[Rfam]
Small nucleolar RNA SNORA73 family: a 222-nucleotide sequence from Sphenodon punctatus.
The organism belongs to Sphenodon, within Eukaryota.
From the family's description: U17 (SNORA73A and SNORA73B) also known as E1 belongs to the H/ACA class of small nucleolar RNAs (snoRNAs).
The family's RNA type in Rfam is H/ACA-box small nucleolar RNA.
On this family, see Enright et al., RNA 1996: "5'ETS rRNA processing facilitated by four small RNAs: U14, E3, U17, and U3".
The family's consensus secondary structure is taken from published work.

RNA sequence: CCAACGUGGGCAUCCAGUGAGAUGGCUCUCGCAUGGCUCUGUCCAGGUGGCGUAUGGGAGCGUAGCACCGCAAGGUGCAGUGACGUAGAGUCCUGUUCCACGACGUUGGAGAUCAAGUUUCCCUCCCCACUGAAAGGCUGGGGAGGGAGGCGUCCUGUAUAUUCCUACAACUUCUCAGCACUUUGUCAGUUGCUGUGAAGACAAACCAUGCAGGACACAAGA
Numbered sequence: 001c002c003a004a005c006g007u008g009g010g011c012a013u014c015c016a017g018u019g020a021g022a023u024g025g026c027u028c029u030c031g032c033a034u035g036g037c038u039c040u041g042u043c044c045a046g047g048u049g050g051c052g053u054a055u056g057g058g059a060g061c062g063u064a065g066c067a068c069c070g071c072a073a074g075g076u077g078c079a080g081u082g083a084c085g086u087a088g089a090g091u092c093c094u095g096u097u098c099c100a101c102g103a104c105g106u107u108g109g110a111g112a113u114c115a116a117g118u119u120u121c122c123c124u125c126c127c128c129a130c131u132g133a134a135a136g137g138c139u140g141g142g143g144a145g146g147g148a149g150g151c152g153u154c155c156u157g158u159a160u161a162u163u164c165c166u167a168c169a170a171c172u173u174c175u176c177a178g179c180a181c182u183u184u185g186u187c188a189g190u191u192g193c194u195g196u197g198a199a200g201a202c203a204a205a206c207c208a209u210g211c212a213g214g215a216c217a218c219a220a221g222a
Stems, first nucleotide, its partner, number of pairs: 001109007008044005014036003019028003047101004056094004062086002065081002154214007171200004176195001178187001179185002